[Rfam]
RNA sequence: GGCUUAAAGGGUGCGUAGGCGGGCCGCCAAGUGUUCUGUGAAAGCCCCGGGCUCAACCCGGGAACGGCAGGGCAUACUGGCGGUCUUGAGGGAUCUAGGGGCAGACAGAACAGUCGGUGGAGCGGUGAAAUGCGUAGAGAUCGACUGGAAUGCCGAUGGCGAAGGCGGUCUGCUGGGGAUCAUCUGACGCUGAGGCACGAAAGCGUGGGGAGCAAACAGGAUUAGAUACCCUGGUAGUCCACGCCGUAAACGAUGCGCACUAAAUCGGUGCCGGUCUGACCCGGUAUCGGUCGACGUGAAAACGAUAAGUGCGCCGCCUGGGGAGUACGGUCGCAAGGCUAAAACUCAAAUGAAU
Number, nucleotide and partner (000 for none) at each position: 001g318002g317003c316004u000005u000006a000007a000008a000009g315010g000011g198012u197013g196014c195015g000016u192017a000018g191019g190020c189021g000022g085023g084024c083025c082026g081027c080028c079029a000030a078031g077032u074033g073034u072035u071036c070037u069038g068039u067040g000041a000042a000043a000044g000045c000046c062047c061048c060049g059050g058051g057052c000053u000054c000055a000056a000057c051058c050059c049060g048061g047062g046063a000064a000065c000066g000067g039068c038069a037070g036071g035072g034073c033074a032075u000076a000077c031078u030079g028080g027081c026082g025083g024084u023085c022086u000087u000088g000089a185090g184091g183092g181093a180094u179095c178096u177097a000098g000099g000100g174101g173102c172103a171104g170105a169106c168107a151108g000109a000110a000111c147112a146113g145114u144115c143116g142117g141118u140119g000120g000121a000122g133123c132124g131125g000126u000127g000128a000129a000130a000131u124132g123133c122134g000135u000136a000137g000138a000139g000140a118141u117142c116143g115144a114145c113146u112147g111148g000149a000150a000151u107152g000153c000154c000155g000156a000157u000158g000159g166160c165161g000162a000163a000164g000165g160166c159167g000168g106169u105170c104171u103172g102173c101174u100175g000176g000177g096178g095179a094180u093181c092182a000183u091184c090185u089186g000187a000188c000189g020190c019191u018192g016193a000194g000195g014196c013197a012198c011199g000200a000201a000202a000203g244204c243205g242206u241207g240208g239209g000210g000211a000212g238213c237214a000215a000216a000217c233218a232219g231220g230221a000222u000223u000224a000225g000226a000227u000228a000229c000230c220231c219232u218233g217234g000235u000236a000237g213238u212239c208240c207241a206242c205243g204244c203245c000246g000247u000248a000249a000250a000251c000252g000253a000254u000255g314256c313257g312258c311259a310260c309261u000262a000263a000264a291265u290266c289267g288268g287269u286270g285271c284272c283273g282274g281275u000276c000277u000278g000279a000280c000281c274282c273283g272284g271285u270286a269287u268288c267289g266290g265291u264292c000293g000294a000295c000296g303297u302298g000299a000300a000301a000302a297303c296304g000305a000306u000307a000308a000309g260310u259311g258312c257313g256314c255315c009316g003317c002318c001319u000320g347321g346322g345323g000324a000325g000326u000327a000328c000329g340330g339331u338332c337333g000334c000335a000336a000337g332338g331339c330340u329341a000342a000343a000344a000345c322346u321347c320348a000349a000350a000351u000352g000353a000354a000355u000